[Rfam]
RNA sequence: ACCGCAUGUAAAGCGCCUGGACUGAGCUGUGCCGCUCCAUAUGGUGGACAUGUCCAUCACCAAGCAGCAGGCAGCCCAGUUGACGCGGAGGAGGUUGGCGAACCAUUCGGCGGGUGCCUCCCGGUGUGCGACCGCACCGUAAGCGAAACUCGAAAACCGGCAGGUGACUGCUGGAACAGGAGUGAGCAGGUUG
Numbered sequence: 001a002c003c004g005c006a007u008g009u010a011a012a013g014c015g016c017c018u019g020g021a022c023u024g025a026g027c028u029g030u031g032c033c034g035c036u037c038c039a040u041a042u043g044g045u046g047g048a049c050a051u052g053u054c055c056a057u058c059a060c061c062a063a064g065c066a067g068c069a070g071g072c073a074g075c076c077c078a079g080u081u082g083a084c085g086c087g088g089a090g091g092a093g094g095u096u097g098g099c100g101a102a103c104c105a106u107u108c109g110g111c112g113g114g115u116g117c118c119u120c121c122c123g124g125u126g127u128g129c130g131a132c133c134g135c136a137c138c139g140u141a142a143g144c145g146a147a148a149c150u151c152g153a154a155a156a157c158c159g160g161c162a163g164g165u166g167a168c169u170g171c172u173g174g175a176a177c178a179g180g181a182g183u184g185a186g187c188a189g190g191u192u193g
Stems, first nucleotide, its partner, number of pairs: 020081005026075002029072001090121005099109003122139006149184001157174007
RNA: glmS glucosamine-6-phosphate activated ribozyme aptamer